[Rfam]
RNA sequence: AAAUCCUGUAUCAGGCGGCUGUGCAGAUUGCAAGCUUGCUUGCAAAAAUGCACAGACAUCUGAUACGACAACAGAAAUCGAGAAGUAGCGCGAUAGCGCGGAUUCGAGAUUUCUGUAGCAUGACGAGAGUGCGAAGCACGAAGUCAUGCGUAGGAUUU
Numbered sequence: 001a002a003a004u005c006c007u008g009u010a011u012c013a014g015g016c017g018g019c020u021g022u023g024c025a026g027a028u029u030g031c032a033a034g035c036u037u038g039c040u041u042g043c044a045a046a047a048a049u050g051c052a053c054a055g056a057c058a059u060c061u062g063a064u065a066c067g068a069c070a071a072c073a074g075a076a077a078u079c080g081a082g083a084a085g086u087a088g089c090g091c092g093a094u095a096g097c098g099c100g101g102a103u104u105c106g107a108g109a110u111u112u113c114u115g116u117a118g119c120a121u122g123a124c125g126a127g128a129g130u131g132c133g134a135a136g137c138a139c140g141a142a143g144u145c146a147u148g149c150g151u152a153g154g155a156u157u158u
Stems, first nucleotide, its partner, number of pairs: 001158007008066004014060002017057001019055007028046002030043005072115008082105003088099004118149007129139004
A member of the RNA family "Clostridiales-1 RNA" from Oribacterium sp. C9, 158 nucleotides long.
Rfam 15.1 lists 1,172 matches to the family in 137 species.
By type it is a small RNA.
The organism belongs to Oribacterium, within Bacteria.